[Rfam]
RNA sequence: CCGCGACAUAGGCCGAAUCCCUGGAGACAGGGAGCGGGGGAACCAAGAUUUUUGGGGUGAAUCCCGAGGACGGAUGCAAUCCUGAUCCGAGGGUAGGGUAACUCUUUGAACCCGAACCCGGCAGCUAACCUCGUAGGCCUUCAAGGAGAGGCGCC
Numbered sequence: 001c002c003g004c005g006a007c008a009u010a011g012g013c014c015g016a017a018u019c020c021c022u023g024g025a026g027a028c029a030g031g032g033a034g035c036g037g038g039g040g041a042a043c044c045a046a047g048a049u050u051u052u053u054g055g056g057g058u059g060a061a062u063c064c065c066g067a068g069g070a071c072g073g074a075u076g077c078a079a080u081c082c083u084g085a086u087c088c089g090a091g092g093g094u095a096g097g098g099u100a101a102c103u104c105u106u107u108g109a110a111c112c113c114g115a116a117c118c119c120g121g122c123a124g125c126u127a128a129c130c131u132c133g134u135a136g137g138c139c140u141u142c143a144a145g146g147a148g149a150g151g152c153g154c155c
Stems, first nucleotide, its partner, number of pairs: 011139004018033006034134006044054002055119003063093003096113004
This 155-nucleotide RNA from bacterium HR30 belongs to the Rfam family "c-di-AMP riboswitch aptamer (ydaO/yuaA leader)". It scores 99 bits against the family's covariance model.